The record is a 145-nucleotide RNA sequence from Gossypium hirsutum, which matches "MIR7502 microRNA precursor family" in Rfam.
Pairs were carried over by alignment from the consensus structure, which was predicted with RNAalifold.
Gene Ontology terms of the family: RISC complex and miRNA-mediated post-transcriptional gene silencing.
Taxonomically the source falls in Gossypium (Eukaryota, Viridiplantae, Streptophyta, Embryophyta).
[Rfam]
RNA sequence: AAUUAAAAGUUCCAUCCAAUUCUAUUGUUAAAAACUAAUCCCUGGAUGUCAACAUGAGGUAUAUGUGGCACGCCAUGUAUCACUAUCUAAUUAUUCCAUCAACCAUACCAAUUUUUAAUAGUACAAAUAGAUGGACUUUUUAACA
Numbered sequence: 001a002a003u004u005a006a007a008a009g010u011u012c013c014a015u016c017c018a019a020u021u022c023u024a025u026u027g028u029u030a031a032a033a034a035c036u037a038a039u040c041c042c043u044g045g046a047u048g049u050c051a052a053c054a055u056g057a058g059g060u061a062u063a064u065g066u067g068g069c070a071c072g073c074c075a076u077g078u079a080u081c082a083c084u085a086u087c088u089a090a091u092u093a094u095u096c097c098a099u100c101a102a103c104c105a106u107a108c109c110a111a112u113u114u115u116u117a118a119u120a121g122u123a124c125a126a127a128u129a130g131a132u133g134g135a136c137u138u139u140u141u142a143a144c145a
Stems, first nucleotide, its partner, number of pairs: 003143007011135006018128001020126002023123004028118006